[Rfam]
RNA sequence: CGGAAAGAGAGGGAUUCAAACCCUCGGUACGAAUAACUUGUACAACGAAUUAA
Numbered sequence: 001c002g003g004a005a006a007g008a009g010a011g012g013g014a015u016u017c018a019a020a021c022c023c024u025c026g027g028u029a030c031g032a033a034u035a036a037c038u039u040g041u042a043c044a045a046c047g048a049a050u051u052a053a
Stems, first nucleotide, its partner, number of pairs: 009025005027043006
Dot-bracket structure: ........(((((.......))))).((((((.....))))))..........
A member of the RNA family "Plastid-psbl-rps4 3UTR RNA" from Populus tomentosa, 53 nucleotides long. By type it is a cis-regulatory element. The literature on the family includes a 2012 paper in Nucleic Acids Res by Zhelyazkova et al., "Protein-mediated protection as the predominant mechanism for defining processed mRNA termini in land plant chloroplasts". Plastid psbl-rps4-psbC is a non-coding RNA (ncRNA) present in plastids. It is compose of two short stem-loops in tandem in the terminal 3 prime untranslate region (3UTR) mostly in psbl and rps4 seed plants genes. The match comes from Rfam's covariance-model search (73 bits). NCBI's taxonomy places the organism under Eukaryota, Streptophyta, Pentapetalae, fabids, Populus. Rfam 15.1 lists 1,631 matches to the family in 422 species.